This 30-nucleotide RNA sequence from Thermococcus kodakarensis belongs to the Rfam family "CRISPR RNA direct repeat element". The family has 7 seed sequences and 344 matches in Rfam 15.1. The organism belongs to Thermococcus kodakarensis, within Archaea. The family's consensus secondary structure was predicted with WAR.

RNA sequence: GUUGCAAUAAGACUCUAAGAGAAUUGAAAG
Numbered sequence: 001g002u003u004g005c006a007a008u009a010a011g012a013c014u015c016u017a018a019g020a021g022a023a024u025u026g027a028a029a030g
Stems, first nucleotide, its partner, number of pairs: 005026004